[Rfam]
RNA: S15-Flavobacteria ribosomal protein leader
RNA sequence: UACCUUUGCCCCGUCAGUGAAAAGUUCACUUGACUACAUAAUAAUUAUUUUAACAAUAUUGGAAUG
Numbered sequence: 001u002a003c004c005u006u007u008g009c010c011c012c013g014u015c016a017g018u019g020a021a022a023a024g025u026u027c028a029c030u031u032g033a034c035u036a037c038a039u040a041a042u043a044a045u046u047a048u049u050u051u052a053a054c055a056a057u058a059u060u061g062g063a064a065u066g
Base pairs, nucleotide, nucleotide: 014033015032016030017029018028019027020026
Dot-bracket structure: .............(((((((.....))))).)).................................